[Rfam]
RNA sequence: CUUCCGCUCUCCCCGCACAGGAGGGCGGAUCGGGUACCCGGCGCGCUCUGCCCUGACCGCACCGGGCGCCUCGUGGCCGGCCGCUCGGCCGGCGCAACCCGGGCUGCGGUGCCGGGCGGGUUGAGGGUCCCGCUCUGGCGC
Number, nucleotide and partner (000 for none) at each position: 001c000002u000003u029004c028005c027006g026007c000008u024009c023010u022011c021012c020013c000014c000015g000016c000017a000018c000019a000020g012021g011022a010023g009024g008025g000026c006027g005028g004029a003030u000031c000032g071033g070034g069035u068036a000037c000038c065039c064040g063041g062042c000043g060044c059045g000046c055047u000048c000049u000050g000051c000052c000053c000054u000055g046056a000057c000058c000059g044060c043061a000062c041063c040064g039065g038066g000067c000068g035069c034070c033071u032072c000073g000074u000075g000076g000077c092078c091079g090080g089081c088082c087083g000084c000085u000086c000087g082088g081089c080090c079091g078092g077093c000094g000095c000096a000097a110098c109099c108100c106101g105102g000103g000104c000105u101106g100107c000108g099109g098110u097111g000112c000113c000114g135115g134116g133117c132118g131119g130120g129121u000122u000123g000124a000125g000126g000127g000128u000129c120130c119131c118132g117133c116134u115135c114136u000137g000138g000139c000140g000141c000